[Rfam]
RNA sequence: AGGCUAUGAUGAGAAAAGCCAUGCACUACACUGAAGAGAUCCAUCUCUCUAUGCUGACAAACAAACUUACAACGCAUUUUAUAUCUCAGCCU
Numbered sequence: 001a002g003g004c005u006a007u008g009a010u011g012a013g014a015a016a017a018g019c020c021a022u023g024c025a026c027u028a029c030a031c032u033g034a035a036g037a038g039a040u041c042c043a044u045c046u047c048u049c050u051a052u053g054c055u056g057a058c059a060a061a062c063a064a065a066c067u068u069a070c071a072a073c074g075c076a077u078u079u080u081a082u083a084u085c086u087c088a089g090c091c092u
Base pairs, nucleotide, nucleotide: 001092002091003090004089
Rfam assigns this 92-nucleotide RNA from Hordeum vulgare to the family "Small nucleolar RNA Z221/R21b". By type it is a C/D-box small nucleolar RNA. For this family Rfam cites "The high diversity of snoRNAs in plants: identification and comparative study of 120 snoRNA genes from Oryza sativa" (Chen et al., Nucleic Acids Res, 2003). It scores 53 bits against the family's covariance model. Its family is annotated with RNA processing and nucleolus in the Gene Ontology.